[Rfam]
RNA sequence: GUGGGAACCGCUCGCGGUUCCCACGGCCCGACCCCGGUACCUGACACGGCCGGGGCGG
Numbered sequence: 001g002u003g004g005g006a007a008c009c010g011c012u013c014g015c016g017g018u019u020c021c022c023a024c025g026g027c028c029c030g031a032c033c034c035c036g037g038u039a040c041c042u043g044a045c046a047c048g049g050c051c052g053g054g055g056c057g058g
Stems, first nucleotide, its partner, number of pairs: 001024009028058003032055007
RNA: L17-Actino-Proteobacteria ribosomal protein leader
Organism: Thiemannella venezuelensis